Mammalian CPEB3 ribozyme: a 76-nucleotide RNA from Crocodylus porosus. The mammalian CPEB3 ribozyme is a self cleaving RNA located in the second intron of the CPEB3 gene which belongs to a family of genes regulating messenger RNA polyadenylation. The family's consensus secondary structure is taken from published work. It scores 58 bits against the family's covariance model. Lineage of the source: Eukaryota > Bilateria > Gnathostomata > Archosauria > Crocodylus.

Nucleotides: 076
Stems, first nucleotide, its partner, number of pairs: 013042004019076001021074005026038003048065006
Number, partner (000 for none) and nucleotide at each position: 001000a002000a003000c004000u005000g006000c007000u008000a009000u010000a011000a012000c013042g014041g015040c016039c017000a018000c019076a020000a021074c022073a023072g024071a025070a026038g027037u028036g029000u030000u031000c032000a033000c034000a035000u036028c037027g038026u039016g040015g041014c042013c043000c044000c045000u046000g047000u048065c049064a050063g051062a052061u053060u054000c055000c056000a057000g058000u059000a060053a061052a062051u063050c064049u065048g066000g067000a068000a069000a070025u071024u072023c073022u074021g075000c076019u